RNA sequence: UCGGCUCCGGUUCACGCGACGCAAACGGCCUCGCGACCCGGCGCC
Numbered sequence: 001u002c003g004g005c006u007c008c009g010g011u012u013c014a015c016g017c018g019a020c021g022c023a024a025a026c027g028g029c030c031u032c033g034c035g036a037c038c039c040g041g042c043g044c045c
Stems, first nucleotide, its partner, number of pairs: 003045003007041004015035005021029002
L31-Actinobacteria ribosomal protein leader: a 45-nucleotide sequence from Streptomyces sp. Z26. The literature on the family includes a 2020 paper in BMC Microbiol by Eckert and Weinberg, "Discovery of 20 novel ribosomal leader candidates in bacteria and archaea". By type it is a cis-regulatory leader. Lineage of the source: Bacteria > Bacillati > Actinomycetes > Streptomycetaceae > Streptomyces.